[Rfam]
Source information
A member of the RNA family "Bacterial large subunit ribosomal RNA" from Urbifossiella limnaea, 441 nucleotides of a longer RNA. Gene Ontology terms of the family: ribosome and structural constituent of ribosome.

RNA sequence: CUCUCCGAAAUAACUUUAGGGUUAGCGUCGGGCUAGUUGGUAGUGGGGGUAGAGCGACUGAUUCCGAACGGGGGCCUACCCGGCUACCCGUCGGAGCCAAACUCCGAAUACCACUAUACAAGGCCCGGCAGCUAGGCUCUGGGGGACAAUCUCCAGGGCCGAGAGGGGAACAGCCCGGACCGCCCGCUAAGGCCCCCGAAUGACGCUCAGUGCGAAAGGAGGUCGAACCCCGAGGACAGCCGGGAUGUUGGCUUAGAAGCAGCCACCAUUUAAAAAGUGCGUAAUAGCUUACCGGUCGAGGGGUUCCGCGCCGAUAAUGAACGGGACUCAAGCGUCAUGCCGAAGCGGCGGGUGUGUAGUUUACUACACGCGGUAGGAGAGCGUUGCACGUGCGGCGAAGCGAUACGGACAACGGGUCGUGGAGCGCGUGCAAGUGAUUAU
Numbered sequence: 001c002u003c004u005c006c007g008a009a010a011u012a013a014c015u016u017u018a019g020g021g022u023u024a025g026c027g028u029c030g031g032g033c034u035a036g037u038u039g040g041u042a043g044u045g046g047g048g049g050u051a052g053a054g055c056g057a058c059u060g061a062u063u064c065c066g067a068a069c070g071g072g073g074g075c076c077u078a079c080c081c082g083g084c085u086a087c088c089c090g091u092c093g094g095a096g097c098c099a100a101a102c103u104c105c106g107a108a109u110a111c112c113a114c115u116a117u118a119c120a121a122g123g124c125c126c127g128g129c130a131g132c133u134a135g136g137c138u139c140u141g142g143g144g145g146a147c148a149a150u151c152u153c154c155a156g157g158g159c160c161g162a163g164a165g166g167g168g169a170a171c172a173g174c175c176c177g178g179a180c181c182g183c184c185c186g187c188u189a190a191g192g193c194c195c196c197c198g199a200a201u202g203a204c205g206c207u208c209a210g211u212g213c214g215a216a217a218g219g220a221g222g223u224c225g226a227a228c229c230c231c232g233a234g235g236a237c238a239g240c241c242g243g244g245a246u247g248u249u250g251g252c253u254u255a256g257a258a259g260c261a262g263c264c265a266c267c268a269u270u271u272a273a274a275a276a277g278u279g280c281g282u283a284a285u286a287g288c289u290u291a292c293c294g295g296u297c298g299a300g301g302g303g304u305u306c307c308g309c310g311c312c313g314a315u316a317a318u319g320a321a322c323g324g325g326a327c328u329c330a331a332g333c334g335u336c337a338u339g340c341c342g343a344a345g346c347g348g349c350g351g352g353u354g355u356g357u358a359g360u361u362u363a364c365u366a367c368a369c370g371c372g373g374u375a376g377g378a379g380a381g382c383g384u385u386g387c388a389c390g391u392g393c394g395g396c397g398a399a400g401c402g403a404u405a406c407g408g409a410c411a412a413c414g415g416g417u418c419g420u421g422g423a424g425c426g427c428g429u430g431c432a433a434g435u436g437a438u439u440a441u
Stems, first nucleotide, its partner, number of pairs: 001381006011024005026131001027129007037122001040117007052105001053103002059099002063095004070088002072085002075082001135160010165176003180351004185347003191341003200338007218312002222309002225306007239296005245269003250264003270274001275290001279288002352371008382436001384433010400420005406414002

A search with the family's covariance model found it, with a score of 2502 bits. NCBI's taxonomy places the organism under Bacteria, Pseudomonadati, Planctomycetia, Gemmataceae, Urbifossiella.